The record is a 310-nucleotide sequence from Manihot esculenta, which matches "Plant signal recognition particle RNA" in Rfam. By type it is a non-coding RNA gene. The literature on the family includes a 2009 paper in RNA Biol by Rosenblad et al., "Kinship in the SRP RNA family".
[Rfam]
RNA sequence: GCCGAGUUCAGUAACGCGAGCUUGUGACCCAAGUGGGGGCUAUGAAGUGAUAGGAUAUUGAUCUUAGCCCAGAUGGUUGUGGGCUCUGGCUGGCUCAUUUCUGGCUUGCCCAUUCCAAGCCUGGAGUUGAGUCGAAGAACUUGGGCGAAAGCUUGGGUUUCGUGGCUCCUAAAGUGGAGGGUACAGCGUAAGGCUGGCUUCACAGAGCAGCGACUACCUCCCGCUUCUGGCAGUGGAAGGAUAACAGGUCGGUGUUACUCGGGUCUACAAAGCCUGAUGGAUGGACUGUUCUAACUGGACUGUCACUUUU
Numbered sequence: 001g002c003c004g005a006g007u008u009c010a011g012u013a014a015c016g017c018g019a020g021c022u023u024g025u026g027a028c029c030c031a032a033g034u035g036g037g038g039g040c041u042a043u044g045a046a047g048u049g050a051u052a053g054g055a056u057a058u059u060g061a062u063c064u065u066a067g068c069c070c071a072g073a074u075g076g077u078u079g080u081g082g083g084c085u086c087u088g089g090c091u092g093g094c095u096c097a098u099u100u101c102u103g104g105c106u107u108g109c110c111c112a113u114u115c116c117a118a119g120c121c122u123g124g125a126g127u128u129g130a131g132u133c134g135a136a137g138a139a140c141u142u143g144g145g146c147g148a149a150a151g152c153u154u155g156g157g158u159u160u161c162g163u164g165g166c167u168c169c170u171a172a173a174g175u176g177g178a179g180g181g182u183a184c185a186g187c188g189u190a191a192g193g194c195u196g197g198c199u200u201c202a203c204a205g206a207g208c209a210g211c212g213a214c215u216a217c218c219u220c221c222c223g224c225u226u227c228u229g230g231c232a233g234u235g236g237a238a239g240g241a242u243a244a245c246a247g248g249u250c251g252g253u254g255u256u257a258c259u260c261g262g263g264u265c266u267a268c269a270a271a272g273c274c275u276g277a278u279g280g281a282u283g284g285a286c287u288g289u290u291c292u293a294a295c296u297g298g299a300c301u302g303u304c305a306c307u308u309u310u
Stems, first nucleotide, its partner, number of pairs: 001040003004023006028037003044309010056297002058294003061290001063288001069280003075274004081266006088259002091257003095254001101252008110240002113238005119231003123227005129168006137160010169174001176221005187212003194205003
Dot-bracket structure: (((((((((........))))))....(((....))))))...((((((((((..((((((.(.....(((...((((..((((((.((.(((.(.....((((((((.((.(((((.(((.(((((.((((((..((((((((((....))))))))))..))))))(....).(((((......(((....(((......)))....)))....))))).))))).)))..)))))))....)))))))).)))))).))))))....))))...))).......).).))).))..)))))))))).